A member of the RNA family "Streptomyces RNA 6106" from Streptomyces mangrovisoli, 84 nucleotides long. The family's RNA type in Rfam is small RNA. About the family: Identified by deep sequencing of transcriptome at the end of exponential growth phase. Appears smaller on northern blot than sequencing transcript. This indicates processing step. Streptomyces specific.
RNA sequence: ACGCCGCCGCGUGCGGCGGUCGGGGCCUCGACGGGCCCGAUGGGCGGGGGUGGUGCCGUGUCGGCGCAGCACCACCCCUGCGCU
Numbered sequence: 001a002c003g004c005c006g007c008c009g010c011g012u013g014c015g016g017c018g019g020u021c022g023g024g025g026c027c028u029c030g031a032c033g034g035g036c037c038c039g040a041u042g043g044g045c046g047g048g049g050g051u052g053g054u055g056c057c058g059u060g061u062c063g064g065c066g067c068a069g070c071a072c073c074a075c076c077c078c079u080g081c082g083c084u
Stems, first nucleotide, its partner, number of pairs: 002018006020042001024038002026035003044081013058067003